A member of the RNA family "Mammalian CPEB3 ribozyme" from Columbina picui, 77 nucleotides long. Lineage of the source: Eukaryota > Sauropsida > Saurischia > Theropoda > Columbina.
[Rfam]
RNA sequence: UUUGUUCCACAGUUAGGCCAGGGUAGGAGCAUCCUCGUGCAGCCCAUGCCAGACUCUGAAUGUCUGCAAAUUCUGCA
Numbered sequence: 001u002u003u004g005u006u007c008c009a010c011a012g013u014u015a016g017g018c019c020a021g022g023g024u025a026g027g028a029g030c031a032u033c034c035u036c037g038u039g040c041a042g043c044c045c046a047u048g049c050c051a052g053a054c055u056c057u058g059a060a061u062g063u064c065u066g067c068a069a070a071u072u073c074u075g076c077a
Stems, first nucleotide, its partner, number of pairs: 014046001016044003023076006029040003050066005
The match comes from Rfam's covariance-model search (35 bits). From the family's description: The mammalian CPEB3 ribozyme is a self cleaving RNA located in the second intron of the CPEB3 gene which belongs to a family of genes regulating messenger RNA polyadenylation. This ribozyme is highly conserved and found only in mammals. The CPEB3 ribozyme is structurally and biochemically related to the human hepatitis delta virus (HDV) ribozyme and the HDV ribozyme is proposed to have arisen from the human transcriptome. There is currently only one other known self cleaving ribozyme in mammals, the CoTC motif.